[Rfam]
RNA sequence: CCCGCUGUUCCGUCAGCGGUAGCCUACUAUAAGGUGCAUCUCCAGUGAUGGGUUGUGCUAAGCUUAUAGGACAAAGUACACUUUCCGAAAGGACAAGACUGAACCGUGAGGAAACGUCAAGGGCGGUUAGUAUCAUACCGUCGAGUGG
Numbered sequence: 001c002c003c004g005c006u007g008u009u010c011c012g013u014c015a016g017c018g019g020u021a022g023c024c025u026a027c028u029a030u031a032a033g034g035u036g037c038a039u040c041u042c043c044a045g046u047g048a049u050g051g052g053u054u055g056u057g058c059u060a061a062g063c064u065u066a067u068a069g070g071a072c073a074a075a076g077u078a079c080a081c082u083u084u085c086c087g088a089a090a091g092g093a094c095a096a097g098a099c100u101g102a103a104c105c106g107u108g109a110g111g112a113a114a115c116g117u118c119a120a121g122g123g124c125g126g127u128u129a130g131u132a133u134c135a136u137a138c139c140g141u142c143g144a145g146u147g148g
Stems, first nucleotide, its partner, number of pairs: 002019006028068005033059006040052001042051003082095001084093003097118002104111002123141005
The family of this 148-nucleotide RNA is "Group II catalytic intron D1-D4-7". Rfam describes the family as follows. Group II introns are found in rRNA, tRNA and mRNA of organelles in fungi, plants and protists, and also in mRNA in bacteria. The literature on the family includes a 2001 paper in Trends Genet by Bonen and Vogel, "The ins and outs of group II introns". Rfam's curators put it in the seed alignment.